[Rfam]
About this RNA:
Rfam assigns this 76-nucleotide RNA from Albula glossodonta to the family "Small nucleolar RNA SNORD83". The literature on the family includes a 2000 paper in Nucleic Acids Res by Jady and Kiss, "Characterisation of the U83 and U84 small nucleolar RNAs: two novel 2'-O-ribose methylation guide RNAs that lack complementarities to ribosomal RNAs". The family has 7 seed sequences and 1,393 matches in Rfam 15.1. The family's RNA type in Rfam is C/D-box small nucleolar RNA. The family's consensus secondary structure was predicted with PFOLD.

Nucleotides: 076
Base pairs, nucleotide, nucleotide: 001075002074003073004072027038028037029036030035
Number, partner (000 for none) and nucleotide at each position: 001075g002074c003073c004072a005000c006000a007000u008000g009000a010000u011000g012000a013000a014000c015000c016000a017000a018000g019000a020000u021000a022000g023000u024000u025000g026000a027038g028037c029036a030035c031000u032000u033000a034000a035030g036029u037028g038027c039000c040000a041000a042000g043000a044000u045000g046000a047000c048000c049000u050000u051000c052000u053000a054000u055000c056000u057000a058000u059000c060000a061000c062000c063000c064000u065000u066000u067000u068000c069000u070000g071000a072004u073003g074002g075001c076000u